[Rfam]
RNA sequence: GGGGACGUUACGGAUUCGACAGGGAUAGAUUGAGCUCAGACUGCGCGUCGAGGUUACGGCUCGUAAAACGUUAUUGCCUAAAUAUAACUGGCGAAGAAAACAAUUCACCAGCUUUAGCAGCUGCCUAAGCACUGCCUAAAGCGAUCCUUCCUGCUAUCGCCCGUGUGGCAGAUUGAAGGGUCUCAAAUGAAGCGGGCUAUUCCGCCAUCCACCGUCUGAGGAUGACGGCAGAAUACAAUCAGACUAGCUGCCUGUAAGCCUGUUGGCAGGCUGAAGGGUAAGCGAAUGAUAAUAUGUCAACUAUGCGUGUAGAUGUCUGAGUGACGAUAUCUCUGGACGUGGGUUCGAUUCCCACCGUCUCCACCA
Numbered sequence: 001g002g003g004g005a006c007g008u009u010a011c012g013g014a015u016u017c018g019a020c021a022g023g024g025a026u027a028g029a030u031u032g033a034g035c036u037c038a039g040a041c042u043g044c045g046c047g048u049c050g051a052g053g054u055u056a057c058g059g060c061u062c063g064u065a066a067a068a069c070g071u072u073a074u075u076g077c078c079u080a081a082a083u084a085u086a087a088c089u090g091g092c093g094a095a096g097a098a099a100a101c102a103a104u105u106c107a108c109c110a111g112c113u114u115u116a117g118c119a120g121c122u123g124c125c126u127a128a129g130c131a132c133u134g135c136c137u138a139a140a141g142c143g144a145u146c147c148u149u150c151c152u153g154c155u156a157u158c159g160c161c162c163g164u165g166u167g168g169c170a171g172a173u174u175g176a177a178g179g180g181u182c183u184c185a186a187a188u189g190a191a192g193c194g195g196g197c198u199a200u201u202c203c204g205c206c207a208u209c210c211a212c213c214g215u216c217u218g219a220g221g222a223u224g225a226c227g228g229c230a231g232a233a234u235a236c237a238a239u240c241a242g243a244c245u246a247g248c249u250g251c252c253u254g255u256a257a258g259c260c261u262g263u264u265g266g267c268a269g270g271c272u273g274a275a276g277g278g279u280a281a282g283c284g285a286a287u288g289a290u291a292a293u294a295u296g297u298c299a300a301c302u303a304u305g306c307g308u309g310u311a312g313a314u315g316u317c318u319g320a321g322u323g324a325c326g327a328u329a330u331c332u333c334u335g336g337a338c339g340u341g342g343g344u345u346c347g348a349u350u351c352c353c354a355c356c357g358u359c360u361c362c363a364c365c366a
Base pairs, nucleotide, nucleotide: 001362002361003360004359005358006357007356020335021334022333023332024331025330026329027328034322035321036320037319038318039317040316041315044309045308046307047306048305049063050062051061052060054073056071057070058069113140114139115138116137117135118134119133120132143182144181145180146179147178148177151171152170153169154168155167156166157165159197160196161195162194163193164192202228203227204226206224207223208222214245217242247283248282249280250279251278252277253276255274258271259270260269262301263300264299265298266295268293339355340354341353342352343351
A member of the RNA family "transfer-messenger RNA" from Lentibacillus kapialis, 366 nucleotides long. A reference for the family is Felden et al. (1997), "Probing the structure of the Escherichia coli 10Sa RNA (tmRNA)", RNA. The organism belongs to Lentibacillus, within Bacteria.